[Rfam]
This 114-nucleotide sequence from Dissostichus mawsoni belongs to the Rfam family "Potassium channel RNA editing signal". For this family Rfam cites "Control of human potassium channel inactivation by editing of a small mRNA hairpin" (Bhalla et al., Nat Struct Mol Biol, 2004).
Nucleotides: 114
Stems, first nucleotide, its partner, number of pairs: 005110001007108005013102004018097002021095002037077004049063002
Number, partner (000 for none) and nucleotide at each position: 001000c002000c003000c004000a005110g006000g007108u008107a009106c010105g011104g012000a013102g014101a015100c016099a017000u018097g019096g020000u021095a022094c023000c024000g025000a026000a027000g028000a029000c030000a031000a032000u033000c034000a035000u036000g037077g038076g039075g040074a041000a042000g043000a044000u045000c046000u047000u048000u049063g050062g051000c052000u053000c054000g055000g056000u057000u058000u059000g060000c061000u062050c063049u064000c065000u066000g067000a068000g069000c070000g071000g072000c073000g074040u075039c076038c077037u078000c079000g080000u081000c082000a083000u084000c085000g086000c087000u088000c089000u090000g091000c092000c093000c094022g095021u096019u097018c098000c099016u100015g101014u102013c103000a104011u105010c106009g107008u108007g109000u110005c111000c112000a113000a114000c
About this RNA: The family's consensus secondary structure is taken from published work.